[Rfam]
Rfam assigns this 157-nucleotide RNA sequence from Blastomyces gilchristii to the family "A. fumigatus sRNA Afu_254".
RNA sequence: UAAUACAUUUAAAGGCAAUCCAAAAAUCUUACCGAAUUUCAAAACAAAUUCAUCACCCAUCUACCCAUCCAAAAAUGUCUCCCUGCAACUGCAACUGCUGUGCCGGCGACUGCAACUCCUGCAGCUGCACCAGCUGCUCUGUGAGUUGAUAUAAAAA
Number, nucleotide and partner (000 for none) at each position: 001u000002a000003a000004u000005a000006c000007a000008u000009u000010u000011a000012a000013a000014g000015g000016c000017a000018a000019u000020c000021c000022a000023a000024a000025a000026a000027u000028c000029u000030u000031a000032c000033c000034g000035a000036a000037u000038u000039u000040c000041a000042a000043a000044a000045c000046a000047a000048a000049u000050u000051c000052a000053u000054c000055a000056c000057c000058c000059a000060u000061c000062u000063a000064c000065c000066c000067a000068u000069c000070c000071a000072a000073a000074a000075a000076u000077g000078u000079c000080u000081c000082c000083c000084u108085g107086c106087a000088a000089c000090u000091g101092c100093a099094a000095c000096u000097g000098c000099u093100g092101u091102g000103c000104c000105g000106g086107c085108g084109a000110c000111u000112g137113c136114a135115a000116c000117u000118c000119c000120u000121g128122c127123a000124g000125c000126u000127g122128c121129a000130c000131c000132a000133g000134c000135u114136g113137c112138u000139c000140u000141g000142u000143g000144a000145g000146u000147u000148g000149a000150u000151a000152u000153a000154a000155a000156a000157a000
The literature on the family includes a 2008 paper in Nucleic Acids Res by Jochl et al., "Small ncRNA transcriptome analysis from Aspergillus fumigatus suggests a novel mechanism for regulation of protein synthesis". NCBI's taxonomy places the organism under Eukaryota, Dikarya, saccharomyceta, Eurotiomycetidae, Blastomyces gilchristii.